This 171-nucleotide RNA from Lachnoclostridium sp. An118 belongs to the Rfam family "Lysine riboswitch aptamer".
NCBI's taxonomy places the organism under Bacteria, Clostridia, Lachnospirales, Lachnospiraceae, Lachnoclostridium.

[Rfam]
RNA sequence: AGACUGGAUAGAGGCGCAGUGUCCAUCAGUACCGCGCGGCCAUGGUCCCGGGAGGACUGCCGCACAGGGAAAGGGGACUCUGCCGAAGGGAACAGCUGCCCGGAGUGGGUUCCCUGGGCCGUACGGAGAAGAUCCUGCGGACUGUCACAACUGUGGAGCGCUAUCAUAGUA
Numbered sequence: 001a002g003a004c005u006g007g008a009u010a011g012a013g014g015c016g017c018a019g020u021g022u023c024c025a026u027c028a029g030u031a032c033c034g035c036g037c038g039g040c041c042a043u044g045g046u047c048c049c050g051g052g053a054g055g056a057c058u059g060c061c062g063c064a065c066a067g068g069g070a071a072a073g074g075g076g077a078c079u080c081u082g083c084c085g086a087a088g089g090g091a092a093c094a095g096c097u098g099c100c101c102g103g104a105g106u107g108g109g110u111u112c113c114c115u116g117g118g119c120c121g122u123a124c125g126g127a128g129a130a131g132a133u134c135c136u137g138c139g140g141a142c143u144g145u146c147a148c149a150a151c152u153g154u155g156g157a158g159c160g161c162u163a164u165c166a167u168a169g170u171a
Stems, first nucleotide, its partner, number of pairs: 007165005016083004021078004032068002034065001036063005087115007096108003116143002119140005125134002145156004